[Rfam]
RNA sequence: AGAGAAUUCUCAGGAGAAUGAACUCCGGGAAGAUAGAACAAAAAAAAUUAAGAUAAGUAGUAGGAAUUAACGAACAUAUUUUAAU
Numbered sequence: 001a002g003a004g005a006a007u008u009c010u011c012a013g014g015a016g017a018a019u020g021a022a023c024u025c026c027g028g029g030a031a032g033a034u035a036g037a038a039c040a041a042a043a044a045a046a047a048u049u050a051a052g053a054u055a056a057g058u059a060g061u062a063g064g065a066a067u068u069a070a071c072g073a074a075c076a077u078a079u080u081u082u083a084a085u
Stems, first nucleotide, its partner, number of pairs: 007031005013026004069080002
Record summary:
The record is an 85-nucleotide RNA from Elaeis guineensis, which matches "Plastid-rpl20 3UTR RNA" in Rfam. The base pairs follow the family's consensus structure, which was predicted with LocARNA. A reference for the family is Richter et al. (2023), "Retrograde signaling in plants: A critical review focusing on the GUN pathway and beyond", Plant Commun. Rfam describes the family as follows. Plastid rpl20 is a non-coding RNA (ncRNA) recognised in plastids. Rfam classes the family as a cis-regulatory element.